Bacterial large subunit ribosomal RNA: a 265-nucleotide part of an RNA from Psychrosphaera ytuae.
RNA sequence: GGAUGAUUGAGAGGGGCUGCUCCUAGUACGAGAGGACCGGAGUGGACGAACCGCUGGUGUUCGGGUUGUCAUGCCAAUGGCAUUGCCCGGUAGCUAUGUUCGGAAUCGAUAACCGCUGAAAGCAUCUAAGCGGGAAGCGAGCCUCGAGAUGAGUCAUCCCUAGACCUUUAAGGUCUCUAAAGGGUCGUUGAAGACUACAACGUUGAUAGGUUGGGUGUGGAAGCGCUGUGAGGCGUUAAGCUAACCAAUACUAAUUGCCCGUGAG
Numbered sequence: 001g002g003a004u005g006a007u008u009g010a011g012a013g014g015g016g017c018u019g020c021u022c023c024u025a026g027u028a029c030g031a032g033a034g035g036a037c038c039g040g041a042g043u044g045g046a047c048g049a050a051c052c053g054c055u056g057g058u059g060u061u062c063g064g065g066u067u068g069u070c071a072u073g074c075c076a077a078u079g080g081c082a083u084u085g086c087c088c089g090g091u092a093g094c095u096a097u098g099u100u101c102g103g104a105a106u107c108g109a110u111a112a113c114c115g116c117u118g119a120a121a122g123c124a125u126c127u128a129a130g131c132g133g134g135a136a137g138c139g140a141g142c143c144u145c146g147a148g149a150u151g152a153g154u155c156a157u158c159c160c161u162a163g164a165c166c167u168u169u170a171a172g173g174u175c176u177c178u179a180a181a182g183g184g185u186c187g188u189u190g191a192a193g194a195c196u197a198c199a200a201c202g203u204u205g206a207u208a209g210g211u212u213g214g215g216u217g218u219g220g221a222a223g224c225g226c227u228g229u230g231a232g233g234c235g236u237u238a239a240g241c242u243a244a245c246c247a248a249u250a251c252u253a254a255u256u257g258c259c260c261g262u263g264a265g
Stems, first nucleotide, its partner, number of pairs: 001159008011145004017045007047102005055096003062089005067082006106140003113133005162176005179262001182260004186202005207253003210249005217241001220237001223236005